[Rfam]
RNA sequence: CUUGAUCGAGCCAAGCCGGAGGGGCCGGUCCUCCGUACGGCUCUCGCCGUACGUCGCGAGCAGCGCCUGGGCCUC
Numbered sequence: 001c002u003u004g005a006u007c008g009a010g011c012c013a014a015g016c017c018g019g020a021g022g023g024g025c026c027g028g029u030c031c032u033c034c035g036u037a038c039g040g041c042u043c044u045c046g047c048c049g050u051a052c053g054u055c056g057c058g059a060g061c062a063g064c065g066c067c068u069g070g071g072c073c074u075c
Base pairs, nucleotide, nucleotide: 015025016024017023031071032070033069038065039064043060044059045058047056049054
The family of this 75-nucleotide sequence from Sinosporangium siamense is "ASpks TB sRNA". The family's RNA type in Rfam is antisense RNA. The family's consensus secondary structure is taken from published work. The organism belongs to Sinosporangium, within Bacteria.